[Rfam]
RNA sequence: UCAGAUUUUCUUCAUUUUUUUCUAGAAUUUUUCUCGGAUUUUUGUUGUUGAAGGUUGAUGGAGAUGAUAUGAAGAUGAAGAAAAUGAGAAA
Numbered sequence: 001u002c003a004g005a006u007u008u009u010c011u012u013c014a015u016u017u018u019u020u021u022c023u024a025g026a027a028u029u030u031u032u033c034u035c036g037g038a039u040u041u042u043u044g045u046u047g048u049u050g051a052a053g054g055u056u057g058a059u060g061g062a063g064a065u066g067a068u069a070u071g072a073a074g075a076u077g078a079a080g081a082a083a084a085u086g087a088g089a090a091a
Stems, first nucleotide, its partner, number of pairs: 005085015037056007